Rfam assigns this 96-nucleotide RNA from Hydrogenophaga sp. A37 to the family "Glycine riboswitch aptamer".
This family represents the bacterial glycine riboswitch.
[Rfam]
Nucleotides: 096
Stems, first nucleotide, its partner, number of pairs: 006091008020041004043076003046072002050070003056064002
Number, partner (000 for none) and nucleotide at each position: 001000u002000u003000c004000c005000g006091u007090u008089g009088a010087u011086c012085g013084g014000g015000a016000g017000a018000g019000a020041c021040c022039g023038g024000c025000c026000c027000u028000g029000c030000a031000a032000c033000g034000g035000g036000a037000a038023c039022c040021g041020g042000c043076g044075c045074c046072g047071a048000a049000g050070g051069a052068g053000c054000a055000a056064c057063c058000g059000c060000c061000c062000c063057g064056g065000a066000a067000a068052c069051u070050c071047u072046c073000a074045g075044g076043c077000a078000a079000a080000a081000g082000g083000a084013c085012c086011g087010a088009u089008c090007g091006a092000c093000g094000c095000a096000c
Pairs were carried over by alignment from the consensus structure. It scores 72 bits against the family's covariance model.